[Rfam]
The record is a 106-nucleotide RNA sequence from Mikania micrantha, which matches "mir-166 microRNA precursor family" in Rfam. Lineage of the source: Eukaryota > Viridiplantae > Mesangiospermae > eudicotyledons > Mikania. For this family Rfam cites "microRNAs: tiny regulators with great potential" (Ambros, Cell, 2001). From the family's description: This family represents the plant microRNA (miRNA) precursor mir-166. Pairs were carried over by alignment from the consensus structure, which was predicted with PFOLD.
RNA sequence: UUUGUCAGGCAUGUCGCCUGGCACGAAGCACUUACACAAAAUUUGUCUAAGCUUAAGCUUAUAAUAAUUGUGUAACGGCUUCGGACCAGGCUUCAUUCCUCACAAA
Numbered sequence: 001u002u003u004g005u006c007a008g009g010c011a012u013g014u015c016g017c018c019u020g021g022c023a024c025g026a027a028g029c030a031c032u033u034a035c036a037c038a039a040a041a042u043u044u045g046u047c048u049a050a051g052c053u054u055a056a057g058c059u060u061a062u063a064a065u066a067a068u069u070g071u072g073u074a075a076c077g078g079c080u081u082c083g084g085a086c087c088a089g090g091c092u093u094c095a096u097u098c099c100u101c102a103c104a105a106a
Stems, first nucleotide, its partner, number of pairs: 001106005007100003011096003016091006024083003